[Rfam]
RNA: Drosophila small cajal body-specific RNA PsiU6-40
RNA sequence: GUUGGCUGCAUAUCCGAUAUAGCGCUUCAAAUAAAGAUUUAUUUUGGCGUUUAUAACUGCAGCCUACAACAAAGUGCAGGAACUCUGUGUGAUUGCAUUCAAGUCUGUGCAUUGACAUCGUUAUUUCUGCUACAUUA
Numbered sequence: 001g002u003u004g005g006c007u008g009c010a011u012a013u014c015c016g017a018u019a020u021a022g023c024g025c026u027u028c029a030a031a032u033a034a035a036g037a038u039u040u041a042u043u044u045u046g047g048c049g050u051u052u053a054u055a056a057c058u059g060c061a062g063c064c065u066a067c068a069a070c071a072a073a074g075u076g077c078a079g080g081a082a083c084u085c086u087g088u089g090u091g092a093u094u095g096c097a098u099u100c101a102a103g104u105c106u107g108u109g110c111a112u113u114g115a116c117a118u119c120g121u122u123a124u125u126u127c128u129g130c131u132a133c134a135u136u137a
Stems, first nucleotide, its partner, number of pairs: 004064006013056001017052001021051005029043002032041003071136002074133001077129006085120001087118004092113001094111001096109003